[Rfam]
RNA sequence: UCUUGUUUCUAAGUACUAGUGCCGCAGGAGUGUAUUACCAAUCUCCUGCUGCUUAAGUGCUUAUCAAUGAGG
Number, nucleotide and partner (000 for none) at each position: 001u072002c071003u070004u069005g068006u067007u066008u000009c000010u063011a062012a061013g060014u059015a058016c057017u056018a000019g054020u000021g000022c000023c000024g049025c048026a047027g046028g045029a044030g043031u000032g000033u000034a000035u000036u000037a000038c000039c000040a000041a000042u000043c030044u029045c028046c027047u026048g025049c024050u000051g000052c000053u000054u019055a000056a017057g016058u015059g014060c013061u012062u011063a010064u000065c000066a007067a006068u005069g004070a003071g002072g001
Record summary:
Rfam assigns this 72-nucleotide sequence from Manduca sexta to the family "mir-252 microRNA precursor family". The family has 44 seed sequences and 422 matches in Rfam 15.1. A reference for the family is Li et al. (2009), "Direct sequencing and expression analysis of a large number of miRNAs in Aedes aegypti and a multi-species survey of novel mosquito miRNAs", BMC Genomics. Its family is annotated with RISC complex and miRNA-mediated post-transcriptional gene silencing in the Gene Ontology. Its Rfam clan is "mir-252 microRNA precursor family". The source organism's lineage runs through Eukaryota, Ecdysozoa, Heteroneura, Sphinginae and Manduca.